[Rfam]
Nucleotides: 067
Stems, first nucleotide, its partner, number of pairs: 004064014019049010
Number, partner (000 for none) and nucleotide at each position: 001000a002000c003000a004064c005063a006062c007061a008060c009059u010058g011057a012056a013055u014054g015053g016052u017051c018000a019049g020048a021047u022046u023045a024044u025043u026042g027041u028040g029000a030000u031000c032000u033000c034000u035000g036000a037000a038000c039000g040028c041027a042026c043025a044024a045023u046022a047021a048020u049019c050000u051017g052016a053015c054014c055013a056012u057011u058010c059009a060008g061007u062006g063005u064004g065000u066000g067000u

The record is a 67-nucleotide RNA sequence from Pipistrellus kuhlii, which matches "mir-9256 microRNA precursor family" in Rfam. The source organism's lineage runs through Eukaryota, Teleostomi, Amniota, Boreoeutheria and Pipistrellus. The base pairs follow the family's consensus structure, which was predicted with RNAalifold.